[Rfam]
RNA sequence: GGCUGGUACCGCGGGAGCCGCGGCGGCGGUCACAAUCGCCGCGCGGCUGAGAGGGCUUCAGCGCCGACCGCUUGACCUGAUCCGGCUAGUACCGGCGUAGGGAAGGACUCCAUGGAAGAA
Numbered sequence: 001g002g003c004u005g006g007u008a009c010c011g012c013g014g015g016a017g018c019c020g021c022g023g024c025g026g027c028g029g030u031c032a033c034a035a036u037c038g039c040c041g042c043g044c045g046g047c048u049g050a051g052a053g054g055g056c057u058u059c060a061g062c063g064c065c066g067a068c069c070g071c072u073u074g075a076c077c078u079g080a081u082c083c084g085g086c087u088a089g090u091a092c093c094g095g096c097g098u099a100g101g102g103a104a105g106g107a108c109u110c111c112a113u114g115g116a117a118g119a120a
Base pairs, nucleotide, nucleotide: 006108007107009105011071012070013069014068017047018046019045020044021043054065055064056063076101077100078099079098082095083094084093085092